[Rfam]
RNA sequence: UCAAAGGCAAUGACGAAGAGCACUGUUUUGCUAAGAAACUAAUAAGAGAGUCCGACAUUUGGUGAAAGCGGAUAGUGGAAACAAAAUCAGUAAAUCACUUCUGAGCUUGUGUGCUGAAAUAUAGUAAGUAUACACCUAAUAAAUCACGUUACAGGUUUCGGACUUGUUGGAGUCUAGUAGAGUGGCAUAGUUUUCUAUGCAAAUUGAGUGGUACCGCGGAUAUCAGAUUCGUCUCAUGA
Numbered sequence: 001u002c003a004a005a006g007g008c009a010a011u012g013a014c015g016a017a018g019a020g021c022a023c024u025g026u027u028u029u030g031c032u033a034a035g036a037a038a039c040u041a042a043u044a045a046g047a048g049a050g051u052c053c054g055a056c057a058u059u060u061g062g063u064g065a066a067a068g069c070g071g072a073u074a075g076u077g078g079a080a081a082c083a084a085a086a087u088c089a090g091u092a093a094a095u096c097a098c099u100u101c102u103g104a105g106c107u108u109g110u111g112u113g114c115u116g117a118a119a120u121a122u123a124g125u126a127a128g129u130a131u132a133c134a135c136c137u138a139a140u141a142a143a144u145c146a147c148g149u150u151a152c153a154g155g156u157u158u159c160g161g162a163c164u165u166g167u168u169g170g171a172g173u174c175u176a177g178u179a180g181a182g183u184g185g186c187a188u189a190g191u192u193u194u195c196u197a198u199g200c201a202a203a204u205u206g207a208g209u210g211g212u213a214c215c216g217c218g219g220a221u222a223u224c225a226g227a228u229u230c231g232u233c234u235c236a237u238g239a
Stems, first nucleotide, its partner, number of pairs: 007106002015101004023090003027086002039078003050073005109133007135148001137146001185200006205236004216232005